RNA: Molybdenum/Tungsten riboswitch aptamer (Moco RNA motif)
Organism: Synergistes jonesii
RNA sequence: AAAAGAUUAAAUCCCCGAGUCAAAGCCCCUGCGAAUUUUAUUCAUGGGACAAGACCAAUGGGUGUCUUUGGAAACGGAGGCGCCUCCCGUUUUGGAAAGGGGAAGGGUUGGCAGGCCG
Number, nucleotide and partner (000 for none) at each position: 001a000002a000003a000004a000005g000006a109007u000008u000009a000010a000011a000012u103013c102014c101015c100016c099017g000018a000019g055020u054021c053022a000023a000024a000025g050026c000027c048028c047029c046030u000031g000032c000033g043034a042035a041036u040037u000038u000039u000040a036041u035042u034043c033044a000045u000046g029047g028048g027049a000050c025051a000052a000053g021054a020055c019056c000057a000058a000059u000060g085061g084062g083063u082064g081065u080066c079067u078068u077069u076070g075071g000072a000073a000074a000075c070076g069077g068078a067079g066080g065081c064082g063083c062084c061085u060086c095087c094088c000089g000090u000091u000092u000093u000094g087095g086096a000097a000098a000099g016100g015101g014102g013103a012104a000105g000106g000107g000108u000109u006110g000111g000112c000113a000114g000115g000116c000117c000118g000